[Rfam]
RNA sequence: GCUCUCUCGCUCCGAACUGUCGCCGUAUGGCGUGCGUUCCUGCCGAUCGGCAGGAUAGGACGAGAGAGCGCAA
Numbered sequence: 001g002c003u004c005u006c007u008c009g010c011u012c013c014g015a016a017c018u019g020u021c022g023c024c025g026u027a028u029g030g031c032g033u034g035c036g037u038u039c040c041u042g043c044c045g046a047u048c049g050g051c052a053g054g055a056u057a058g059g060a061c062g063a064g065a066g067a068g069c070g071c072a073a
Base pairs, nucleotide, nucleotide: 001069002068003067004066005065006064007063009061011060012059013058018036019035020034021032022031023030024029038055039054040053041052042051

About this RNA
Shown here is a 73-nucleotide RNA from Sphingomonas sp. YR710, a member of the family "DUF3800-IX RNA". Taxonomically the source falls in Sphingomonas (Bacteria, Pseudomonadota, Sphingomonadales, Sphingomonadaceae). Actinobacteria, Firmicutes (1 example), Nitrospirae, Proteobacteria, Verrucomicrobia (1 example).